[Rfam]
RNA sequence: GGGACGCUAGCUCAGCGGUAGAGCACUCGGCUUUUAACCGAUUGGUCUUGGGUUCGAAUCCCAGGCGUCCCA
Numbered sequence: 001g002g003g004a005c006g007c008u009a010g011c012u013c014a015g016c017g018g019u020a021g022a023g024c025a026c027u028c029g030g031c032u033u034u035u036a037a038c039c040g041a042u043u044g045g046u047c048u049u050g051g052g053u054u055c056g057a058a059u060c061c062c063a064g065g066c067g068u069c070c071c072a
Stems, first nucleotide, its partner, number of pairs: 001071007010024004027041004048064005
A member of the RNA family "tRNA" from Aphanothece hegewaldii, 72 nucleotides long. The family's consensus secondary structure is taken from published work. It is annotated as a transfer RNA. NCBI's taxonomy places the organism under Bacteria, Cyanophyceae, Aphanothecaceae, Aphanothece, Aphanothece hegewaldii. Transfer RNA (tRNA) molecules are approximately 80 nucleotides in length. Rfam links the family to the GO term triplet codon-amino acid adaptor activity.